[Rfam]
Shown here is a 102-nucleotide RNA sequence from Radiobacillus deserti, a member of the family "SAM riboswitch aptamer (S box leader)". Taxonomically the source falls in Radiobacillus (Bacteria, Bacillati, Bacilli, Bacillaceae). The base pairs follow the family's consensus structure, which is taken from published work. The SAM riboswitch is found upstream of a number of genes which code for proteins involved in methionine or cysteine biosynthesis in Gram-positive bacteria.
RNA sequence: UUCUUAUCCAGAGAGGUGGAGGGACUGGCCCUUUGAAGCCUCGGCAGCGGACUUUUACAAGUACUGUGCCAAUUCCAGUAGCGUAUUGCUAGCAGAUGAGAA
Numbered sequence: 001u002u003c004u005u006a007u008c009c010a011g012a013g014a015g016g017u018g019g020a021g022g023g024a025c026u027g028g029c030c031c032u033u034u035g036a037a038g039c040c041u042c043g044g045c046a047g048c049g050g051a052c053u054u055u056u057a058c059a060a061g062u063a064c065u066g067u068g069c070c071a072a073u074u075c076c077a078g079u080a081g082c083g084u085a086u087u088g089c090u091a092g093c094a095g096a097u098g099a100g101a102a
Stems, first nucleotide, its partner, number of pairs: 001102008013042005021031003025078004043070004048066002051062004074094001079091005
Dot-bracket structure: ((((((((....(((((...(((.[[[[)))......)))))((((.((.((((....))))..))))))...(]]]](((((...)))))..)))))))))